RNA sequence: GCCCUUCCCUUACCGGAUGGAAAACACUAUAUCAGCCUUGCCGGUCUUCGGGUCGGCUAUGGUGAUAAACGAGCGAUGGAAUAAGCCUAUUGGACCCGGGGGCGGUACCCGGCGCCUCCACCAAAAACCGGCGAUCGAAGGCCGGCUUUUGAUGGGGGCGAAAUAGGAUCGACAAGGGUGUAAAGAUCGUCUUUUUGCUCGGCAUUGUACCACCGUUAUCGGGCUAAACUUGUAGUUGCAAAUGACAACUAUGCGGAAGCUCGUCUCGCUGCUUAAUCGCAGUGUGACACUUCAAAUCAAGUCCUGAAGGUUCGCACCUUAAGGCGGGGUCCGAAGGCACCUGGCAACAGAAGCCUUCACC
Numbered sequence: 001g002c003c004c005u006u007c008c009c010u011u012a013c014c015g016g017a018u019g020g021a022a023a024a025c026a027c028u029a030u031a032u033c034a035g036c037c038u039u040g041c042c043g044g045u046c047u048u049c050g051g052g053u054c055g056g057c058u059a060u061g062g063u064g065a066u067a068a069a070c071g072a073g074c075g076a077u078g079g080a081a082u083a084a085g086c087c088u089a090u091u092g093g094a095c096c097c098g099g100g101g102g103c104g105g106u107a108c109c110c111g112g113c114g115c116c117u118c119c120a121c122c123a124a125a126a127a128c129c130g131g132c133g134a135u136c137g138a139a140g141g142c143c144g145g146c147u148u149u150u151g152a153u154g155g156g157g158g159c160g161a162a163a164u165a166g167g168a169u170c171g172a173c174a175a176g177g178g179u180g181u182a183a184a185g186a187u188c189g190u191c192u193u194u195u196u197g198c199u200c201g202g203c204a205u206u207g208u209a210c211c212a213c214c215g216u217u218a219u220c221g222g223g224c225u226a227a228a229c230u231u232g233u234a235g236u237u238g239c240a241a242a243u244g245a246c247a248a249c250u251a252u253g254c255g256g257a258a259g260c261u262c263g264u265c266u267c268g269c270u271g272c273u274u275a276a277u278c279g280c281a282g283u284g285u286g287a288c289a290c291u292u293c294a295a296a297u298c299a300a301g302u303c304c305u306g307a308a309g310g311u312u313c314g315c316a317c318c319u320u321a322a323g324g325c326g327g328g329g330u331c332c333g334a335a336g337g338c339a340c341c342u343g344g345c346a347a348c349a350g351a352a353g354c355c356u357u358c359a360c361c
Stems, first nucleotide, its partner, number of pairs: 040057007061199005071192001073190005086178003090175003096112005113160007200215003205226001207224001210222002327342004333358006
The record is a 361-nucleotide RNA from Arminella tubonensis, which matches "Alphaproteobacteria transfer-messenger RNA" in Rfam. NCBI's taxonomy places the organism under Bacteria, Pseudomonadota, Alphaproteobacteria, Hyphomicrobiales, Arminella. For this family Rfam cites "Phylogenetic analysis of tmRNA secondary structure" (Williams and Bartel, RNA, 1996).